[Rfam]
The family of this 173-nucleotide RNA sequence from bacterium 1XD21-70 is "Lysine riboswitch aptamer".
RNA sequence: UAUAGAAGUAGAGGUUGCGUAAGGCAAAAGUAAGCUGCCGGAUGUUCCAGAGACAGGGGAAGGCAGCAGAAAGGGCCAAACGCCGAAGAUGCAUGCAGUCUGGCUGCAUUCGUCUGGGCGCAGGGUGAAGAACCUUGUGACUGUCAUCCGGGAUCGGGUGGAGUGCUUGAGGU
Numbered sequence: 001u002a003u004a005g006a007a008g009u010a011g012a013g014g015u016u017g018c019g020u021a022a023g024g025c026a027a028a029a030g031u032a033a034g035c036u037g038c039c040g041g042a043u044g045u046u047c048c049a050g051a052g053a054c055a056g057g058g059g060a061a062g063g064c065a066g067c068a069g070a071a072a073g074g075g076c077c078a079a080a081c082g083c084c085g086a087a088g089a090u091g092c093a094u095g096c097a098g099u100c101u102g103g104c105u106g107c108a109u110u111c112g113u114c115u116g117g118g119c120g121c122a123g124g125g126u127g128a129a130g131a132a133c134c135u136u137g138u139g140a141c142u143g144u145c146a147u148c149c150g151g152g153a154u155c156g157g158g159u160g161g162a163g164u165g166c167u168u169g170a171g172g173u
Stems, first nucleotide, its partner, number of pairs: 006168001010167002017083004023077003034067006087115005093109006116142002119139008144161007
The family's consensus secondary structure is taken from published work. Gene Ontology term of the family: lysine biosynthetic process.